[Rfam]
RNA: Mammalian CPEB3 ribozyme
Organism: Alligator sinensis
RNA sequence: UGAAAGUUCAAAGCCAGAGCAGAAGUGCUCACAGCGUGGCCAUAUCAGAUUCCAGUGAAUCUGCAAAUUCUUCU
Numbered sequence: 001u002g003a004a005a006g007u008u009c010a011a012a013g014c015c016a017g018a019g020c021a022g023a024a025g026u027g028c029u030c031a032c033a034g035c036g037u038g039g040c041c042a043u044a045u046c047a048g049a050u051u052c053c054a055g056u057g058a059a060u061c062u063g064c065a066a067a068u069u070c071u072u073c074u
Stems, first nucleotide, its partner, number of pairs: 013040003018074002021071004025037003046063007
Dot-bracket structure: ............[[[..((.(((((((.......)))]]].....(((((((....)))))))....)))).))